Notes:
PyrD leader: a 73-nucleotide sequence. The family's consensus secondary structure is taken from published work. Its family is annotated with regulation of gene expression in the Gene Ontology. The match comes from Rfam's covariance-model search (82 bits). It is annotated as a cis-regulatory leader.
RNA sequence: AUUCCAAUUAGGCGGGGGAUACCGGAUAAUACGCCCCCGGUUUGCAACCGGGAAAUCAGGAGAGUCCAUGUAC
Numbered sequence: 001a002u003u004c005c006a007a008u009u010a011g012g013c014g015g016g017g018g019a020u021a022c023c024g025g026a027u028a029a030u031a032c033g034c035c036c037c038c039g040g041u042u043u044g045c046a047a048c049c050g051g052g053a054a055a056u057c058a059g060g061a062g063a064g065u066c067c068a069u070g071u072a073c
Stems, first nucleotide, its partner, number of pairs: 036052006